Rfam assigns this 82-nucleotide sequence from Variovorax paradoxus to the family "Pseudomonas sRNA P9". About the family: This small RNA (sRNA) was computationally identified in the genome of the opportunistic pathogen Pseudomonas aeruginosa and its expression verified by northern blot analysis. P9 appears to be conserved in several Pseudomonas species in addition to Bordetella spp. In both Pseudomonas and Bordetella spp P9 appears to be located upstream of a predicted threonine dehydratase gene. Lineage of the source: Bacteria > Pseudomonadati > Pseudomonadota > Burkholderiales > Variovorax. A search with the family's covariance model found it, with a score of 50 bits. It is annotated as a non-coding RNA gene. The literature on the family includes a 2006 paper in Nucleic Acids Res by Livny et al., "Identification of 17 Pseudomonas aeruginosa sRNAs and prediction of sRNA-encoding genes in 10 diverse pathogens using the bioinformatic tool sRNAPredict2".

[Rfam]
RNA sequence: UCCAUUAUUCGCACCAUCCGAAGGAUGGUGGGUUAGCGCGCGGCCUGAGUAGCCAAGCAACCCGCCCCAUGAGGCGGGUUUU
Numbered sequence: 001u002c003c004a005u006u007a008u009u010c011g012c013a014c015c016a017u018c019c020g021a022a023g024g025a026u027g028g029u030g031g032g033u034u035a036g037c038g039c040g041c042g043g044c045c046u047g048a049g050u051a052g053c054c055a056a057g058c059a060a061c062c063c064g065c066c067c068c069a070u071g072a073g074g075c076g077g078g079u080u081u082u
Base pairs, nucleotide, nucleotide: 012030013029014028015027016026017025059080060079061078062077063076064075065074066073